This 169-nucleotide sequence from Leuconostoc fallax belongs to the Rfam family "Lysine riboswitch aptamer". The family's consensus secondary structure is taken from published work. The source organism's lineage runs through Bacteria, Bacillota, Lactobacillales, Lactobacillaceae and Leuconostoc. Riboswitches are metabolite binding domains within certain messenger RNAs that serve as precision sensors for their corresponding targets. Allosteric rearrangement of mRNA structure is mediated by ligand binding, and this results in modulation of gene expression. This family includes riboswitches that sense lysine in a number of genes involved in lysine metabolism, including lysC. Gene Ontology term of the family: lysine biosynthetic process. The family has 47 seed sequences and 3,224 matches in Rfam 15.1.
RNA sequence: UAAAAUCAUAGAGGUUGCUACUGACAUGAGUAUCCUGUGGAAUGUUUACAGACAUGGUGAAACAGGGAUAAAGGGGAUGUAGCCGAAACACCGAUACUGUAGGAUCGAGUUGUUGGGCUGUUAGUGAAUAACUAGCAGACUGUCGCGUUAGCGGGGUGCUAUGACAGUU
Numbered sequence: 001u002a003a004a005a006u007c008a009u010a011g012a013g014g015u016u017g018c019u020a021c022u023g024a025c026a027u028g029a030g031u032a033u034c035c036u037g038u039g040g041a042a043u044g045u046u047u048a049c050a051g052a053c054a055u056g057g058u059g060a061a062a063c064a065g066g067g068a069u070a071a072a073g074g075g076g077a078u079g080u081a082g083c084c085g086a087a088a089c090a091c092c093g094a095u096a097c098u099g100u101a102g103g104a105u106c107g108a109g110u111u112g113u114u115g116g117g118c119u120g121u122u123a124g125u126g127a128a129u130a131a132c133u134a135g136c137a138g139a140c141u142g143u144c145g146c147g148u149u150a151g152c153g154g155g156g157u158g159c160u161a162u163g164a165c166a167g168u169u
Stems, first nucleotide, its partner, number of pairs: 006164006017083005025075001033068003036064003087114004092107004115141002118138008143154004